This 62-nucleotide sequence from Taraxacum kok-saghyz belongs to the Rfam family "Plastid-ccsA-ndhD-2 3UTR RNA". From the family's description: Plastid ccsA-ndhD-2 is a non-coding RNA (ncRNA) recognised in plastids. Taxonomically the source falls in Taraxacum (Eukaryota, Tracheophyta, Pentapetalae, Cichorioideae). The sequence is in the family's curated seed alignment. A reference for the family is Richter et al. (2023), "Retrograde signaling in plants: A critical review focusing on the GUN pathway and beyond", Plant Commun. It is annotated as a cis-regulatory element.

RNA sequence: GGUCUUUGCCAGAACCGUGUGAAUCAAGUAGUGUAGUGAUUCACACGGUUCUCGCCGGUUGA
Numbered sequence: 001g002g003u004c005u006u007u008g009c010c011a012g013a014a015c016c017g018u019g020u021g022a023a024u025c026a027a028g029u030a031g032u033g034u035a036g037u038g039a040u041u042c043a044c045a046c047g048g049u050u051c052u053c054g055c056c057g058g059u060u061g062a
Stems, first nucleotide, its partner, number of pairs: 008055002011052016